Notes
The family of this 89-nucleotide RNA sequence from Pyrus ussuriensis x Pyrus communis is "MIR319 microRNA precursor family". The source organism's lineage runs through Eukaryota, Magnoliopsida, Mesangiospermae, Pentapetalae and Pyrus. Pairs were carried over by alignment from the consensus structure, which was predicted with RNAalifold. Rfam links the family to the GO terms RISC complex and miRNA-mediated post-transcriptional gene silencing. The family has 11 seed sequences and 168 matches in Rfam 15.1.

[Rfam]
RNA sequence: CAGAAAUGGGAGUCCCUUGCAGUCCAAAACAGCGACUAUGAAUGAAAUAGUAGCUCUUCCUUUUGGACUUAAGGGAGCUCCCAAUUCUU
Number, nucleotide and partner (000 for none) at each position: 001c000002a000003g000004a000005a000006a000007u083008g082009g081010g080011a079012g078013u077014c000015c075016c074017u073018u072019g000020c000021a069022g068023u000024c066025c065026a064027a063028a062029a000030c000031a000032g000033c000034g000035a000036c000037u000038a000039u000040g000041a000042a000043u000044g000045a000046a000047a000048u000049a000050g000051u000052a000053g000054c000055u000056c000057u000058u000059c000060c000061u000062u028063u027064u026065g025066g024067a000068c022069u021070u000071a000072a018073g017074g016075g015076a000077g013078c012079u011080c010081c009082c008083a007084a000085u000086u000087c000088u000089u000